[Rfam]
RNA sequence: CUGUAGCUAUUUAUGCUGACUGGACUCCUUACCUUAAGGAGCCUGGUCUGCAGUGGCUGCAAACAGCAGCAUCCUUGGUAAUGUACUAAGUCUGUUGCUUAUUUGGGUUCCCCUAAGGGUCCACUGGAGACGGGG
Numbered sequence: 001c002u003g004u005a006g007c008u009a010u011u012u013a014u015g016c017u018g019a020c021u022g023g024a025c026u027c028c029u030u031a032c033c034u035u036a037a038g039g040a041g042c043c044u045g046g047u048c049u050g051c052a053g054u055g056g057c058u059g060c061a062a063a064c065a066g067c068a069g070c071a072u073c074c075u076u077g078g079u080a081a082u083g084u085a086c087u088a089a090g091u092c093u094g095u096u097g098c099u100u101a102u103u104u105g106g107g108u109u110c111c112c113c114u115a116a117g118g119g120u121c122c123a124c125u126g127g128a129g130a131c132g133g134g135g
Base pairs, nucleotide, nucleotide: 002052003051004050005049019047020046021045022044025041026040027039028038077122078121089109090108091107092106093105

A member of the RNA family "Small nucleolar RNA SNORA70" from Heterocephalus glaber, 135 nucleotides long. It scores 95 bits against the family's covariance model. The family's RNA type in Rfam is H/ACA-box small nucleolar RNA. The family has 43 seed sequences and 5,173 matches in Rfam 15.1. Rfam describes the family as follows. snoRNA U70 seems to be exclusive to mammals and is a member of the H/ACA class of snoRNA which contain H (ANANNA) and ACA box motifs. H/ACA box snoRNAs are involved in the conversion of uridines to pseudouridines (5-ribosyluracil) a constituent of structural RNAs (transfer, ribosomal, small nuclear, and small nucleolar).